[Rfam]
A member of the RNA family "MAT2A 3'UTR stem loop F" from Larus smithsonianus, 66 nucleotides long. The literature on the family includes a 2011 paper in Genome Res by Parker et al., "New families of human regulatory RNA structures identified by comparative analysis of vertebrate genomes".

RNA sequence: CUGGGACCGCGGCGCAUUUGGCCGGUGUGGUACAGAGAAGCCGGCUUGUUUACCUGCCCGUCCUGG
Numbered sequence: 001c002u003g004g005g006a007c008c009g010c011g012g013c014g015c016a017u018u019u020g021g022c023c024g025g026u027g028u029g030g031u032a033c034a035g036a037g038a039a040g041c042c043g044g045c046u047u048g049u050u051u052a053c054c055u056g057c058c059c060g061u062c063c064u065g066g
Stems, first nucleotide, its partner, number of pairs: 001066007011058003016049002020046007027033002
It scores 56 bits against the family's covariance model. The base pairs follow the family's consensus structure, which is taken from published work.